[Rfam]
RNA sequence: GCGAAGUUUCAUCUACAAAUGGAUAGAUUCUGUCUUUUAGUGUAUACGAAUCGUUGAAACAAAGUAGCAAUACCCCAUGUCUGCUGUGCAAGACAUGGGGUAUUGAUACUUU
Numbered sequence: 001g002c003g004a005a006g007u008u009u010c011a012u013c014u015a016c017a018a019a020u021g022g023a024u025a026g027a028u029u030c031u032g033u034c035u036u037u038u039a040g041u042g043u044a045u046a047c048g049a050a051u052c053g054u055u056g057a058a059a060c061a062a063a064g065u066a067g068c069a070a071u072a073c074c075c076c077a078u079g080u081c082u083g084c085u086g087u088g089c090a091a092g093a094c095a096u097g098g099g100g101u102a103u104u105g106a107u108a109c110u111u112u
Stems, first nucleotide, its partner, number of pairs: 008023005061112006068105006075098003079094004